[Rfam]
RNA sequence: AUUCACAAAAGCGAUGAGGCUCGCUUUAACCGUCGAAUGACUGAUAGCCUCUACUGAAUC
Numbered sequence: 001a002u003u004c005a006c007a008a009a010a011g012c013g014a015u016g017a018g019g020c021u022c023g024c025u026u027u028a029a030c031c032g033u034c035g036a037a038u039g040a041c042u043g044a045u046a047g048c049c050u051c052u053a054c055u056g057a058a059u060c
Stems, first nucleotide, its partner, number of pairs: 010025004016051006032041003
RNA: Fluoride riboswitch aptamer (crcB RNA motif)